Description:
Rfam assigns this 331-nucleotide RNA from Equus asinus to the family "7SK RNA". It scores 310 bits against the family's covariance model. The base pairs follow the family's consensus structure, which is taken from published work. Rfam's curators write: 7SK was discovered as an abundant small nuclear RNA in the mid-70s but a possible function has only recently been suggested. Two independent studies have found that 7SK RNA binds the CDK9/cyclin T complex (known as elongation factor P-TEFb). Clan: 7SK clan. Lineage of the source: Eukaryota > Gnathostomata > Amniota > Perissodactyla > Equus.
[Rfam]
RNA sequence: GGAUGUGAGGGCUAUCUGGCUGUGAGAUCUGUUACCCCAUUGAUCGCCAGGGUUGAUUUAGCUGAUCUGGCUGGCUAUGGGGGUGUCCCAUUCCUCCCUCACUGCUCCAUGUGUGUCCUUCCCAAAGCUGCACGCUCGGUUGGAGAGGAUGACCUUCUUCGAUAGAGGAGGACCAGUCUUCGGUCAAGGGUAUAUGAGUGGCUGUGCUCCCGUGACAGAACCUCCAAACAAGCUCUCAAGGUCCAUUUGUAGGAGAAUGUAAAGUGGUCAAGCCUCCAAGACUCCAGAUACAUCCAAAUGAGGUGCUGCAUGUGGCAGUCUGCCUUUCUUU
Numbered sequence: 001g002g003a004u005g006u007g008a009g010g011g012c013u014a015u016c017u018g019g020c021u022g023u024g025a026g027a028u029c030u031g032u033u034a035c036c037c038c039a040u041u042g043a044u045c046g047c048c049a050g051g052g053u054u055g056a057u058u059u060a061g062c063u064g065a066u067c068u069g070g071c072u073g074g075c076u077a078u079g080g081g082g083g084u085g086u087c088c089c090a091u092u093c094c095u096c097c098c099u100c101a102c103u104g105c106u107c108c109a110u111g112u113g114u115g116u117c118c119u120u121c122c123c124a125a126a127g128c129u130g131c132a133c134g135c136u137c138g139g140u141u142g143g144a145g146a147g148g149a150u151g152a153c154c155u156u157c158u159u160c161g162a163u164a165g166a167g168g169a170g171g172a173c174c175a176g177u178c179u180u181c182g183g184u185c186a187a188g189g190g191u192a193u194a195u196g197a198g199u200g201g202c203u204g205u206g207c208u209c210c211c212g213u214g215a216c217a218g219a220a221c222c223u224c225c226a227a228a229c230a231a232g233c234u235c236u237c238a239a240g241g242u243c244c245a246u247u248u249g250u251a252g253g254a255g256a257a258u259g260u261a262a263a264g265u266g267g268u269c270a271a272g273c274c275u276c277c278a279a280g281a282c283u284c285c286a287g288a289u290a291c292a293u294c295c296a297a298a299u300g301a302g303g304u305g306c307u308g309c310a311u312g313u314g315g316c317a318g319u320c321u322g323c324c325u326u327u328c329u330u331u
Base pairs, nucleotide, nucleotide: 001108002107003106005102006101007100008099009098010097011096014092019089024087025086027084028083029082030081032079035074036073037070038069039068042067043066044065045064046062047061116171117170118168119167120166121165122139123138125136127135128134140162141161142160147158148157149156201273202272203271207267208266210264213261214260222255223254224253225252228250229249230248231247232246296331297330298329300326301325302324303323304322305319306318307317308316309315